A member of the RNA family "SAM riboswitch aptamer (S box leader)" from Bacillus methanolicus, 96 nucleotides long. The match comes from Rfam's covariance-model search (85 bits).
RNA sequence: UUUCUAUCCAGAGAGGCGGAGGGACUGGCCCAAUGAAACCUCGGCAACAGACUAUACUGUGCCAAUUCCAGCAAGCGAAUGCUUGAAAGAUAGGAA
Numbered sequence: 001u002u003u004c005u006a007u008c009c010a011g012a013g014a015g016g017c018g019g020a021g022g023g024a025c026u027g028g029c030c031c032a033a034u035g036a037a038a039c040c041u042c043g044g045c046a047a048c049a050g051a052c053u054a055u056a057c058u059g060u061g062c063c064a065a066u067u068c069c070a071g072c073a074a075g076c077g078a079a080u081g082c083u084u085g086a087a088a089g090a091u092a093g094g095a096a
Stems, first nucleotide, its partner, number of pairs: 001096008013042004021031003025071004043063004048059002067088001072085005